[Rfam]
RNA sequence: AUCAUCAGUAGUGGUUAAUACUAUCUCAAGAUAAUAUUAAUUACAAUUUAUUAUAGAAACCUAAAGUUUCUUUCGUUUGUGUUCUUCCGCCUGACGGCUGGGAACUGCAGAGCUCGUCUCUGCAGUUUUUCGUCGUUGGGCUAGUUAACACUGGAACUCUGAAUGAUUGAUUCAAAUACAAUAACCCAUAGCUGAAUGGAUUUUGACUACUUCCAAACAAGGUAGGCACAAUUUCCAUUUCGUUUCCGGUUUCUUAGAUCAUCAUCUGCUAUGACGGGGCAUCUCAAGCUUGCUUGGGGUGAGGUGUACGUUUCCAGAGAAUUGCAUAACGCGGUUUGAAAGUUUGGAUUCUACAGUAACUUCUCUUCAUGGUAGGACAUUU
Numbered sequence: 001a002u003c004a005u006c007a008g009u010a011g012u013g014g015u016u017a018a019u020a021c022u023a024u025c026u027c028a029a030g031a032u033a034a035u036a037u038u039a040a041u042u043a044c045a046a047u048u049u050a051u052u053a054u055a056g057a058a059a060c061c062u063a064a065a066g067u068u069u070c071u072u073u074c075g076u077u078u079g080u081g082u083u084c085u086u087c088c089g090c091c092u093g094a095c096g097g098c099u100g101g102g103a104a105c106u107g108c109a110g111a112g113c114u115c116g117u118c119u120c121u122g123c124a125g126u127u128u129u130u131c132g133u134c135g136u137u138g139g140g141c142u143a144g145u146u147a148a149c150a151c152u153g154g155a156a157c158u159c160u161g162a163a164u165g166a167u168u169g170a171u172u173c174a175a176a177u178a179c180a181a182u183a184a185c186c187c188a189u190a191g192c193u194g195a196a197u198g199g200a201u202u203u204u205g206a207c208u209a210c211u212u213c214c215a216a217a218c219a220a221g222g223u224a225g226g227c228a229c230a231a232u233u234u235c236c237a238u239u240u241c242g243u244u245u246c247c248g249g250u251u252u253c254u255u256a257g258a259u260c261a262u263c264a265u266c267u268g269c270u271a272u273g274a275c276g277g278g279g280c281a282u283c284u285c286a287a288g289c290u291u292g293c294u295u296g297g298g299g300u301g302a303g304g305u306g307u308a309c310g311u312u313u314c315c316a317g318a319g320a321a322u323u324g325c326a327u328a329a330c331g332c333g334g335u336u337u338g339a340a341a342g343u344u345u346g347g348a349u350u351c352u353a354c355a356g357u358a359a360c361u362u363c364u365c366u367u368c369a370u371g372g373u374a375g376g377a378c379a380u381u382u
Stems, first nucleotide, its partner, number of pairs: 008049001010047001012045002014041007022033004055254007066173001069170002073166006079159001081157005089141010100130004107123006143152003194240007203231003207225005266375005272369003276365004280301009303361003307358003313348006319337007
The family of this 382-nucleotide sequence from Torulaspora delbrueckii is "Small nucleolar RNA snR37". The family is grouped with related families in Rfam's "SNORA64 clan". Gene Ontology terms of the family: RNA processing and nucleolus. It scores 310 bits against the family's covariance model. NCBI's taxonomy places the organism under Eukaryota, Ascomycota, Saccharomycetales, Saccharomycetaceae, Torulaspora. The base pairs follow the family's consensus structure, which was predicted with WAR. For this family Rfam cites "Genome-wide searching for pseudouridylation guide snoRNAs: analysis of the Saccharomyces cerevisiae genome" (Schattner et al., Nucleic Acids Res, 2004).